[Rfam]
RNA sequence: CUUCAUUCUUGCAUCCUCGCGACUAAUGACAACCCUGAUCCCACACGGGAUAAAGCCUCUCAUUAGCCGCGCGAACCUCUGCAACUGAAGAUCACACUCAGCAACAAUACAAUAGUUUGCCUGUAAUUGCUGCCGCUUGCUUGAAAAAAGGGGCCAUAAAGGCCCCUUUCC
Numbered sequence: 001c002u003u004c005a006u007u008c009u010u011g012c013a014u015c016c017u018c019g020c021g022a023c024u025a026a027u028g029a030c031a032a033c034c035c036u037g038a039u040c041c042c043a044c045a046c047g048g049g050a051u052a053a054a055g056c057c058u059c060u061c062a063u064u065a066g067c068c069g070c071g072c073g074a075a076c077c078u079c080u081g082c083a084a085c086u087g088a089a090g091a092u093c094a095c096a097c098u099c100a101g102c103a104a105c106a107a108u109a110c111a112a113u114a115g116u117u118u119g120c121c122u123g124u125a126a127u128u129g130c131u132g133c134c135g136c137u138u139g140c141u142u143g144a145a146a147a148a149a150g151g152g153g154c155c156a157u158a159a160a161g162g163c164c165c166c167u168u169u170c171c
Base pairs, nucleotide, nucleotide: 001090002089003088004087011082012081013080018073019072020071021070023066024065025064026063027062028061029060096124097123150166151165152164153163154162155161
This 171-nucleotide sequence from Erwinia sorbitola belongs to the Rfam family "SraG RNA". Pairs were carried over by alignment from the consensus structure, which was predicted with PFOLD. Rfam describes the family as follows. This RNA was discovered in E. coli during a large scale screen. Evidence was found for specific cleavage of this RNA. Rfam links the family to the GO terms sRNA-mediated gene silencing and mRNA binding. It scores 139 bits against the family's covariance model. The organism belongs to Erwinia, within Bacteria.